[Rfam]
RNA: Coronavirus 3' UTR pseudoknot
Organism: Ophiophagus hannah
RNA sequence: UUACUAUUGUACAGAAUGUAUUCUCCAUUUAAUAAUACUGAAAAUAAAUUGUUGCAGAUCA
Numbered sequence: 001u002u003a004c005u006a007u008u009g010u011a012c013a014g015a016a017u018g019u020a021u022u023c024u025c026c027a028u029u030u031a032a033u034a035a036u037a038c039u040g041a042a043a044a045u046a047a048a049u050u051g052u053u054g055c056a057g058a059u060c061a
Stems, first nucleotide, its partner, number of pairs: 007043002010040002028056001030054007